Shown here is a 76-nucleotide RNA sequence from Klebsiella indica, a member of the family "Repression of heat shock gene expression (ROSE) element".
The match comes from Rfam's covariance-model search (66 bits).
Pairs were carried over by alignment from the consensus structure, which is taken from published work.
From the family's description: This family represents a 5' UTR cis-regulatory element found in heat shock mRNAs and is known as the ROSE (repression of heat shock gene expression) element. The ROSE element is a negative regulator of heat shock gene expression. The secondary structure is thought to be regulated by temperature. This regulation blocks access to the ribosome binding site under normal conditions. During heat shock however, the structure changes freeing the ribosome binding site and allowing expression to occur. This family includes predicted members of the family from gamma-proteobacteria.
Lineage of the source: Bacteria > Pseudomonadota > Enterobacterales > Enterobacteriaceae > Klebsiella.

RNA sequence: UCCGGUGAAUAACGGCCUGUCCAGUAUGGAGGGCCAGAUAAAUCUCGCUGAUUUCAGGAGCUAAGUAUUAUGCGUA
Numbered sequence: 001u002c003c004g005g006u007g008a009a010u011a012a013c014g015g016c017c018u019g020u021c022c023a024g025u026a027u028g029g030a031g032g033g034c035c036a037g038a039u040a041a042a043u044c045u046c047g048c049u050g051a052u053u054u055c056a057g058g059a060g061c062u063a064a065g066u067a068u069u070a071u072g073c074g075u076a
Base pairs, nucleotide, nucleotide: 014035015034016033017032018031020030021029022028040066044060045059046058048057049056050055